[Rfam]
Shown here is a 90-nucleotide sequence from Rasamsonia emersonii, a member of the family "tRNA".
It scores 49 bits against the family's covariance model.
The organism belongs to Rasamsonia emersonii, within Eukaryota.
Its family is annotated with triplet codon-amino acid adaptor activity in the Gene Ontology.
RNA sequence: UCCGUAGUGGUGUAGUGGUUAACAUCGCUGUCUCUCAUCCCUCAUAGGGUGAGGACACAGCAGCCCGGGGUUCGAUUCCCCGCUACGGAA
Numbered sequence: 001u002c003c004g005u006a007g008u009g010g011u012g013u014a015g016u017g018g019u020u021a022a023c024a025u026c027g028c029u030g031u032c033u034c035u036c037a038u039c040c041c042u043c044a045u046a047g048g049g050u051g052a053g054g055a056c057a058c059a060g061c062a063g064c065c066c067g068g069g070g071u072u073c074g075a076u077u078c079c080c081c082g083c084u085a086c087g088g089a090a
Stems, first nucleotide, its partner, number of pairs: 001089007010025004027061005066082005